[Rfam]
RNA sequence: ACCUUCCAAAGCAAGCACCAAAAUAAUGAUAGUAUUAUGAAAUCAUCGUCAUUAUUAUUUUGGUGCUUGCUUUGGAAGGU
Numbered sequence: 001a002c003c004u005u006c007c008a009a010a011g012c013a014a015g016c017a018c019c020a021a022a023a024u025a026a027u028g029a030u031a032g033u034a035u036u037a038u039g040a041a042a043u044c045a046u047c048g049u050c051a052u053u054a055u056u057a058u059u060u061u062g063g064u065g066c067u068u069g070c071u072u073u074g075g076a077a078g079g080u
Stems, first nucleotide, its partner, number of pairs: 001080003005076003010073001011070008020058001022056008
Rfam assigns this 80-nucleotide RNA from Leptobrachium leishanense to the family "mir-16 microRNA precursor family". Gene Ontology terms of the family: RISC complex and miRNA-mediated post-transcriptional gene silencing. For this family Rfam cites "Frequent deletions and down-regulation of micro- RNA genes miR15 and miR16 at 13q14 in chronic lymphocytic leukemia" (Calin et al., Proc Natl Acad Sci U S A, 2002). The organism belongs to Leptobrachium, within Eukaryota. A search with the family's covariance model found it, with a score of 40 bits. Its Rfam clan is "mir-15 clan".